[Rfam]
RNA sequence: UAUUAGGUUGGUGCAAAAGUAACUGCGGCUUUUGCCAUUGAAAGUAAUGGUAAAAGCUGCAAUUACUUUUGUACCAACCUAACA
Numbered sequence: 001u002a003u004u005a006g007g008u009u010g011g012u013g014c015a016a017a018a019g020u021a022a023c024u025g026c027g028g029c030u031u032u033u034g035c036c037a038u039u040g041a042a043a044g045u046a047a048u049g050g051u052a053a054a055a056g057c058u059g060c061a062a063u064u065a066c067u068u069u070u071g072u073a074c075c076a077a078c079c080u081a082a083c084a
Base pairs, nucleotide, nucleotide: 001084003082004081005080006079007078008077009076010075011074012073013072014071015070016069017068018067019066020065021064022063024061025060026059027058028057029056030055031054032053033052034051035050036049037048038047039046040045
The family of this 84-nucleotide sequence from Gorilla gorilla is "mir-548 microRNA precursor family". NCBI's taxonomy places the organism under Eukaryota, Deuterostomia, Simiiformes, Gorilla, Gorilla gorilla.